[Rfam]
RNA sequence: UGUGAGAGUAGAGGCGCGUAAACGAUCAGUACGGCUGCUGAGGAAUUGGGAUCUGUUUGAACCAGCCGGAAAGGGGUUUAUGCCGAAAUGGGCGGUUUUUCCCAAAGGCCGUACCAUUGGGGCUGUUUCUGAAUAAGGGCAGCACUGUCAUACGAACGUAUGGGGGGCUAUCUCAAAC
Number, nucleotide and partner (000 for none) at each position: 001u000002g000003u000004g000005a000006g173007a000008g171009u170010a169011g168012a000013g000014g000015c000016g083017c082018g081019u080020a079021a078022a077023c076024g000025a000026u000027c000028a000029g000030u000031a000032c068033g067034g066035c065036u064037g063038c000039u061040g000041a000042g000043g000044a000045a000046u000047u000048g000049g000050g000051a000052u000053c000054u000055g000056u000057u000058u000059g000060a000061a039062c000063c037064a036065g035066c034067c033068g032069g000070a000071a000072a000073g000074g000075g000076g023077u022078u021079u020080a019081u018082g017083c016084c000085g000086a000087a118088a117089u116090g115091g114092g112093c111094g110095g109096u108097u107098u106099u000100u000101c000102c000103c000104a000105a000106a098107g097108g096109c095110c094111g093112u092113a000114c091115c090116a089117u088118u087119g146120g145121g000122g143123c142124u141125g140126u139127u138128u137129c000130u000131g000132a000133a000134u000135a000136a000137g128138g127139g126140c125141a124142g123143c122144a000145c120146u119147g000148u163149c162150a161151u160152a159153c158154g000155a000156a000157c000158g153159u152160a151161u150162g149163g148164g000165g000166g000167g000168c011169u010170a009171u008172c000173u006174c000175a000176a000177a000178c000
RNA: Lysine riboswitch aptamer
Organism: Shouchella clausii